The family of this 508-nucleotide sequence from Saccharopolyspora rhizosphaerae is "Saccharopolyspora sRNA 350". The match comes from Rfam's covariance-model search (176 bits). The literature on the family includes a 2013 paper in PLoS One by Liu et al., "Prediction and characterization of small non-coding RNAs related to secondary metabolites in Saccharopolyspora erythraea". Its family is annotated with regulation of secondary metabolite biosynthetic process in the Gene Ontology. Rfam classes the family as an antisense RNA.

RNA sequence: CGGUAGGUGCUGUCCCACGUGGACUGCGCCGUGGCCAGCACCUGCGAGCCGAAGAACGCGCCACCCGCCAGGGUGUCGACGACGGUGUCGUGCCCGUACUCGCCCGCGCCGACCUCCUCGACCUUGCCGUGGGCGAUCAGCACGACCUCGGUCGCCGGCUCACCGGCCACCGAGAUCAGCUGACCCGGUUCGUAGUGCCGUUGCACGAACCGCUCGGCGAGCGCGACCAGCGCGGAGUCGUCGUCGAAGCCGCGUAGCAGCGGCAGUUCGGUGAGCUCGCGCGGGAUGACCCGCACCUGGUCGCCGGUGUUGGUGAAGGUGAUCCGGCCGUCGCCGGAGGCGUAGGUCAGCCGCCGGUUGACCCGGUAGGUGCCGGCGUCGAUGUCGACCCAGGGCAGCAUCCGCAGCAACCACCGCGGGCUCCUGCCCUGCAUCUGGGGUGGGGUCUUGGUGGUGGUCGACAGCUUGCGCGCAGCCGCGGUGCUCAGGCUCAGAGCGGGCGGCUCGG
Numbered sequence: 001c002g003g004u005a006g007g008u009g010c011u012g013u014c015c016c017a018c019g020u021g022g023a024c025u026g027c028g029c030c031g032u033g034g035c036c037a038g039c040a041c042c043u044g045c046g047a048g049c050c051g052a053a054g055a056a057c058g059c060g061c062c063a064c065c066c067g068c069c070a071g072g073g074u075g076u077c078g079a080c081g082a083c084g085g086u087g088u089c090g091u092g093c094c095c096g097u098a099c100u101c102g103c104c105c106g107c108g109c110c111g112a113c114c115u116c117c118u119c120g121a122c123c124u125u126g127c128c129g130u131g132g133g134c135g136a137u138c139a140g141c142a143c144g145a146c147c148u149c150g151g152u153c154g155c156c157g158g159c160u161c162a163c164c165g166g167c168c169a170c171c172g173a174g175a176u177c178a179g180c181u182g183a184c185c186c187g188g189u190u191c192g193u194a195g196u197g198c199c200g201u202u203g204c205a206c207g208a209a210c211c212g213c214u215c216g217g218c219g220a221g222c223g224c225g226a227c228c229a230g231c232g233c234g235g236a237g238u239c240g241u242c243g244u245c246g247a248a249g250c251c252g253c254g255u256a257g258c259a260g261c262g263g264c265a266g267u268u269c270g271g272u273g274a275g276c277u278c279g280c281g282c283g284g285g286a287u288g289a290c291c292c293g294c295a296c297c298u299g300g301u302c303g304c305c306g307g308u309g310u311u312g313g314u315g316a317a318g319g320u321g322a323u324c325c326g327g328c329c330g331u332c333g334c335c336g337g338a339g340g341c342g343u344a345g346g347u348c349a350g351c352c353g354c355c356g357g358u359u360g361a362c363c364c365g366g367u368a369g370g371u372g373c374c375g376g377c378g379u380c381g382a383u384g385u386c387g388a389c390c391c392a393g394g395g396c397a398g399c400a401u402c403c404g405c406a407g408c409a410a411c412c413a414c415c416g417c418g419g420g421c422u423c424c425u426g427c428c429c430u431g432c433a434u435c436u437g438g439g440g441u442g443g444g445g446u447c448u449u450g451g452u453g454g455u456g457g458u459c460g461a462c463a464g465c466u467u468g469c470g471c472g473c474a475g476c477c478g479c480g481g482u483g484c485u486c487a488g489g490c491u492c493a494g495a496g497c498g499g500g501c502g503g504c505u506c507g508g
Base pairs, nucleotide, nucleotide: 006390007389008388010387012385013384016381019328020327021325022324025322027321028320029319030318032316035313036312037311038310039309040308041307042306046304048302050300052298054233057230060227062225064223065111067109068108075103077102078101079100082097083096084095085094118221122217123216126213127212129210130209131206133204134203135202136201138200140198143197144196149192150191154189155188156187157186158185160183167172234296240290241289242288243287244286245285251281252280253279254278256277257276258275261270262269329342330341331340332339352378353377354376355375356374357373361371362370363369391431392430393429394428395427396426397425400422403418404417405416407415437476440473442471444469448464449463450462452460477507478506481501482500484498486496